[Rfam]
RNA sequence: GAAGGAGGGCCCUUCGAGUUCGGCAAUCAGGUGCUGAUCUCAAGCCACCGCAAGCUGCCUCGGUCAAGAGCCGUGGUUGUGAGCGUUGCGGAAACGCUGGGACGAUGAUCCCGCAGGC
Numbered sequence: 001g002a003a004g005g006a007g008g009g010c011c012c013u014u015c016g017a018g019u020u021c022g023g024c025a026a027u028c029a030g031g032u033g034c035u036g037a038u039c040u041c042a043a044g045c046c047a048c049c050g051c052a053a054g055c056u057g058c059c060u061c062g063g064u065c066a067a068g069a070g071c072c073g074u075g076g077u078u079g080u081g082a083g084c085g086u087u088g089c090g091g092a093a094a095c096g097c098u099g100g101g102a103c104g105a106u107g108a109u110c111c112c113g114c115a116g117g118c
Stems, first nucleotide, its partner, number of pairs: 001015005016041003020037002023034003046117001048091006054080002057077003061073004096114002099111003